RNA sequence: UUCUUCUCAAUAACAAGAUCUGUGUUCAGCGAUCCUGGCGUCUUCUUCGGGGGACUGUUCGGUUGAUUGCUGUCCAGCUCGACUUUUAUGGAGCCAUCAGACUAUUGUGAUGUCAAUUAUCCGGUCGACAGAUUUAAGAACAAUAUGGCCCUGGGACAGCACCUGAGCUCGCUUCGGCUGAGCUCGGUGUGUAACCUUGGUCAAGAGCGUCAUAUUCCUGAUCCCUUCGCUGAGGCCGUCGGCUUGUGAAGUUGGGGAAAAACCAUGACUUGCUUACAUCU
Numbered sequence: 001u002u003c004u005u006c007u008c009a010a011u012a013a014c015a016a017g018a019u020c021u022g023u024g025u026u027c028a029g030c031g032a033u034c035c036u037g038g039c040g041u042c043u044u045c046u047u048c049g050g051g052g053g054a055c056u057g058u059u060c061g062g063u064u065g066a067u068u069g070c071u072g073u074c075c076a077g078c079u080c081g082a083c084u085u086u087u088a089u090g091g092a093g094c095c096a097u098c099a100g101a102c103u104a105u106u107g108u109g110a111u112g113u114c115a116a117u118u119a120u121c122c123g124g125u126c127g128a129c130a131g132a133u134u135u136a137a138g139a140a141c142a143a144u145a146u147g148g149c150c151c152u153g154g155g156a157c158a159g160c161a162c163c164u165g166a167g168c169u170c171g172c173u174u175c176g177g178c179u180g181a182g183c184u185c186g187g188u189g190u191g192u193a194a195c196c197u198u199g200g201u202c203a204a205g206a207g208c209g210u211c212a213u214a215u216u217c218c219u220g221a222u223c224c225c226u227u228c229g230c231u232g233a234g235g236c237c238g239u240c241g242g243c244u245u246g247u248g249a250a251g252u253u254g255g256g257g258a259a260a261a262a263c264c265a266u267g268a269c270u271u272g273c274u275u276a277c278a279u280c281u
Stems, first nucleotide, its partner, number of pairs: 016135008024075001027072003031068004035062004039057001040055006083127001085124002089115003093111001095109001147201001150200002153197003160189004165185006171178002206274003209269005222258005229252003234244004
Overview: Rfam assigns this 281-nucleotide sequence from Aureobasidium subglaciale to the family "A. fumigatus sRNA Afu_309". By type it is a small RNA. Pairs were carried over by alignment from the consensus structure, which was predicted with WAR.